[Rfam]
RNA: SAM riboswitch aptamer (S box leader)
RNA sequence: CGCUCAUCAAGAGUAGCAGAGGGACUGGCCCUAUGAAGCUACGGCAACCAUCAUUAAGAAACGGUGCUAAUUCCAACAGCAAAAGCUGGCAGAUGAGAG
Numbered sequence: 001c002g003c004u005c006a007u008c009a010a011g012a013g014u015a016g017c018a019g020a021g022g023g024a025c026u027g028g029c030c031c032u033a034u035g036a037a038g039c040u041a042c043g044g045c046a047a048c049c050a051u052c053a054u055u056a057a058g059a060a061a062c063g064g065u066g067c068u069a070a071u072u073c074c075a076a077c078a079g080c081a082a083a084a085g086c087u088g089g090c091a092g093a094u095g096a097g098a099g
Stems, first nucleotide, its partner, number of pairs: 001099001003097006013042005021031003026075003043068004048064002051059002072091001077088004